Shown here is an 82-nucleotide sequence from Vagococcus coleopterorum, a member of the family "SAM-III riboswitch aptamer (SMK box)". Taxonomically the source falls in Vagococcus (Bacteria, Bacillota, Bacilli, Lactobacillales).
Nucleotides: 082
Stems, first nucleotide, its partner, number of pairs: 014073005022048003026041005054068002
Number, partner (000 for none) and nucleotide at each position: 001000a002000a003000c004000a005000g006000g007000u008000g009000c010000a011000a012000g013000a014073u015072u016071c017070c018069c019000g020000a021000u022048a023047g024046g025000a026041u027040u028039u029038a030037g031000c032000g033000a034000u035000a036000g037030c038029u039028a040027a041026a042000a043000a044000u045000g046024c047023c048022u049000u050000g051000u052000a053000a054068c055067c056000g057000a058000a059000u060000a061000u062000a063000u064000g065000a066000a067055g068054g069018g070017g071016g072015a073014a074000u075000a076000g077000g078000a079000a080000a081000u082000g